[Rfam]
RNA sequence: CCGCGGUGCUUUCUACUCGGAUCGUCCGGCACGUUCCUGCCGGUGGAAAGGACAACUC
Numbered sequence: 001c002c003g004c005g006g007u008g009c010u011u012u013c014u015a016c017u018c019g020g021a022u023c024g025u026c027c028g029g030c031a032c033g034u035u036c037c038u039g040c041c042g043g044u045g046g047a048a049a050g051g052a053c054a055a056c057u058c
Stems, first nucleotide, its partner, number of pairs: 009050007026043006
RNA: msiK RNA